[Rfam]
RNA sequence: CGCACCGGACGGUCGGUGCGGGCUCUCGACGUACGCCGGGACGGCCCGG
Numbered sequence: 001c002g003c004a005c006c007g008g009a010c011g012g013u014c015g016g017u018g019c020g021g022g023c024u025c026u027c028g029a030c031g032u033a034c035g036c037c038g039g040g041a042c043g044g045c046c047c048g049g
Stems, first nucleotide, its partner, number of pairs: 001020008036049005
Rfam assigns this 49-nucleotide RNA sequence from Isoptericola dokdonensis to the family "Guanidine-II riboswitch aptamer (mini-ykkC)". From the family's description: Simpler in structure and has fewer highly conserved nucleotide positions than the ykkC-yxkD leader. Pairs were carried over by alignment from the consensus structure, which is taken from published work. NCBI's taxonomy places the organism under Bacteria, Bacillati, Actinomycetes, Isoptericola, Isoptericola dokdonensis.